Nucleotides: 085
Base pairs, nucleotide, nucleotide: 002026003025004023005022006021007020008019010018011017050081051080052079053077054076055075057073059072060071061070
Number, partner (000 for none) and nucleotide at each position: 001000c002026g003025g004023g005022c006021g007020g008019u009000a010018u011017c012000a013000g014000a015000g016000u017011g018010a019008a020007c021006u022005g023004c024000a025003c026002c027000u028000u029000u030000a031000u032000a033000c034000a035000c036000u037000u038000a039000u040000u041000u042000a043000u044000u045000u046000a047000u048000a049000u050081c051080u052079g053077c054076c055075u056000a057073g058000a059072u060071c061070c062000a063000a064000a065000u066000a067000a068000u069000a070061g071060g072059a073057c074000a075055a076054g077053g078000a079052c080051a081050g082000a083000g084000g085000g
This 85-nucleotide RNA sequence from Niallia nealsonii belongs to the Rfam family "pan motif". The match comes from Rfam's covariance-model search (61 bits). NCBI's taxonomy places the organism under Bacteria, Bacillota, Caryophanales, Bacillaceae, Niallia.